[Rfam]
RNA: mir-2060 microRNA precursor family
RNA sequence: AUUCAGCUGUGUGGGAAUAGUAUUCAGCACCAGAGACAGGUGUGUUUAGCUGUGUGUAAAUAGUAUUUAGCACCAGGGACAAGUGUGUUUGUAU
Dot-bracket structure: ...((..(((.......(.((.((.((.((.(.(.((((.((....)).)))).).....).)).)).)).)).)...)))..)).........